Shown here is a 125-nucleotide sequence from Xenorhabdus cabanillasii, a member of the family "Phenylalanine leader peptide". The family's consensus secondary structure was predicted with CMfinder.
RNA sequence: AAAAUGAUGAAAUUAGCCUUUUUUCGUUUCUUUUUUUACUUUAGCACCUAAAAUCAGGGGGCUUUGCGCGUAAGAAAAGAAACGAAAAACAGCGCUUGAGCCUCCGGUAUGGAGGCUUUUUUAUU
Numbered sequence: 001a002a003a004a005u006g007a008u009g010a011a012a013u014u015a016g017c018c019u020u021u022u023u024u025c026g027u028u029u030c031u032u033u034u035u036u037u038a039c040u041u042u043a044g045c046a047c048c049u050a051a052a053a054u055c056a057g058g059g060g061g062c063u064u065u066g067c068g069c070g071u072a073a074g075a076a077a078a079g080a081a082a083c084g085a086a087a088a089a090c091a092g093c094g095c096u097u098g099a100g101c102c103u104c105c106g107g108u109a110u111g112g113a114g115g116c117u118u119u120u121u122u123a124u125u
Base pairs, nucleotide, nucleotide: 016093017092021088022087023086024085025084026083027082028081029080030079031078032077033076034075036073037072038071039070047058048057049056060067098118099117100116101115102114103113104112105111106110

Overview:
Taxonomically the source falls in Xenorhabdus (Bacteria, Pseudomonadota, Gammaproteobacteria, Morganellaceae).